[Rfam]
RNA: TPP riboswitch aptamer (THI element)
RNA sequence: AAUGUCUUGUCGGGGUGCCUUAAUUAAAAGGCUGAGAUCACAAUGUGGAUCCCGUUGAACCUGAUCUGGUUAAUACCAGCGUAGGAAACAAGAUGAAAGAACGU
Numbered sequence: 001a002a003u004g005u006c007u008u009g010u011c012g013g014g015g016u017g018c019c020u021u022a023a024u025u026a027a028a029a030g031g032c033u034g035a036g037a038u039c040a041c042a043a044u045g046u047g048g049a050u051c052c053c054g055u056u057g058a059a060c061c062u063g064a065u066c067u068g069g070u071u072a073a074u075a076c077c078a079g080c081g082u083a084g085g086a087a088a089c090a091a092g093a094u095g096a097a098a099g100a101a102c103g104u
Stems, first nucleotide, its partner, number of pairs: 006092005011054004016048001017032005039047003060085004066079004